[Rfam]
RNA sequence: CUUUGCACUACAUUCUCACGACUAAUGACAACCCUUAUCUUGCUUAUGCAGAUAAAGCCUCUCAUUAGCCGCGCGAACCUCUGUAAUGAAAGAUCCUAUUAACAACAAUACACUACUCUGUUUUGCUAAUGCUUCCUAGAAGAAAGGGGCCAAAAGAGGCCCCUUUCC
Numbered sequence: 001c002u003u004u005g006c007a008c009u010a011c012a013u014u015c016u017c018a019c020g021a022c023u024a025a026u027g028a029c030a031a032c033c034c035u036u037a038u039c040u041u042g043c044u045u046a047u048g049c050a051g052a053u054a055a056a057g058c059c060u061c062u063c064a065u066u067a068g069c070c071g072c073g074c075g076a077a078c079c080u081c082u083g084u085a086a087u088g089a090a091a092g093a094u095c096c097u098a099u100u101a102a103c104a105a106c107a108a109u110a111c112a113c114u115a116c117u118c119u120g121u122u123u124u125g126c127u128a129a130u131g132c133u134u135c136c137u138a139g140a141a142g143a144a145a146g147g148g149g150c151c152a153a154a155a156g157a158g159g160c161c162c163c164u165u166u167c168c
Stems, first nucleotide, its partner, number of pairs: 001092004006088002010084003017075001019073002022068007098121002146163006
This 168-nucleotide RNA sequence from Pectobacterium atrosepticum belongs to the Rfam family "SraG RNA".
The family's consensus secondary structure was predicted with PFOLD.
Its family is annotated with sRNA-mediated gene silencing and mRNA binding in the Gene Ontology.
The sequence is in the family's curated seed alignment.
A reference for the family is Argaman et al. (2001), "Novel small RNA-encoding genes in the intergenic regions of Escherichia coli", Curr Biol.
Rfam describes the family as follows. This RNA was discovered in E. coli during a large scale screen. Evidence was found for specific cleavage of this RNA.
Rfam classes the family as a small RNA.